The record is a 139-nucleotide RNA from Myotis lucifugus, which matches "Small Cajal body specific RNA 21" in Rfam. It is one of the family's seed sequences. scaRNAs are a specific class of small nuclear RNAs which localise to the Cajal bodies and guide the modification of RNA polymerase II transcribed spliceosomal RNAs U1, U2, U4, U5 and U12. Pairs were carried over by alignment from the consensus structure, which was predicted with RNAalifold.
[Rfam]
RNA sequence: UAGCUCGGUUUCCUGGGAGGUGGGCUUAGUCUGACCCACCUCCCCUCAGACGAGCUGAGAGUAGAGAGGCCGGGCUUCCUCCCCAUGGGAGAGGUGGUUACGAGAGGAGCCUCACCUAGACUGUCCUUGCCUCACAUUU
Numbered sequence: 001u002a003g004c005u006c007g008g009u010u011u012c013c014u015g016g017g018a019g020g021u022g023g024g025c026u027u028a029g030u031c032u033g034a035c036c037c038a039c040c041u042c043c044c045c046u047c048a049g050a051c052g053a054g055c056u057g058a059g060a061g062u063a064g065a066g067a068g069g070c071c072g073g074g075c076u077u078c079c080u081c082c083c084c085a086u087g088g089g090a091g092a093g094g095u096g097g098u099u100a101c102g103a104g105a106g107g108a109g110c111c112u113c114a115c116c117u118a119g120a121c122u123g124u125c126c127u128u129g130c131c132u133c134a135c136a137u138u139u
Base pairs, nucleotide, nucleotide: 002056003055004054005053006052007051015044016043017042018041019040020039021038022037023036024035066133067132068131069130070129072127073126074125079119080118087112088111089110
The literature on the family includes a 2002 paper in EMBO J by Darzacq et al., "Cajal body-specific small nuclear RNAs: a novel class of 2'-O-methylation and pseudouridylation guide RNAs". It is annotated as a small Cajal body RNA.